Shown here is a 230-nucleotide RNA sequence from Pseudofrankia asymbiotica, a member of the family "Actinobacteria sRNA Ms_IGR-5".
Rfam classes the family as a small RNA.

[Rfam]
RNA sequence: ACACGAGAAGGGAGGUGGUCCAAAGUUGUGUAGUUCUUGGACUCGUGAGGUGACUGUCAGCUAGCCGGUCUCGUGGUCCUCACCGAGCGGGACACCGUCCCGAUCCGGGUGCCCAUGAGCCCCGGCCGGCGAGUACCAGGCAGUUACCGGGCCCCCGGGUGCCGUCGUAGUCCCGACGGCCCGCGUCGUGUGCCAAGCACCGACGCGGAAGUACCCGGGGGUUUCACGUU
Numbered sequence: 001a002c003a004c005g006a007g008a009a010g011g012g013a014g015g016u017g018g019u020c021c022a023a024a025g026u027u028g029u030g031u032a033g034u035u036c037u038u039g040g041a042c043u044c045g046u047g048a049g050g051u052g053a054c055u056g057u058c059a060g061c062u063a064g065c066c067g068g069u070c071u072c073g074u075g076g077u078c079c080u081c082a083c084c085g086a087g088c089g090g091g092a093c094a095c096c097g098u099c100c101c102g103a104u105c106c107g108g109g110u111g112c113c114c115a116u117g118a119g120c121c122c123c124g125g126c127c128g129g130c131g132a133g134u135a136c137c138a139g140g141c142a143g144u145u146a147c148c149g150g151g152c153c154c155c156c157g158g159g160u161g162c163c164g165u166c167g168u169a170g171u172c173c174c175g176a177c178g179g180c181c182c183g184c185g186u187c188g189u190g191u192g193c194c195a196a197g198c199a200c201c202g203a204c205g206c207g208g209a210a211g212u213a214c215c216c217g218g219g220g221g222u223u224u225c226a227c228g229u230u
Stems, first nucleotide, its partner, number of pairs: 014058006060130003064126002067122002070119001072117005149224013162179006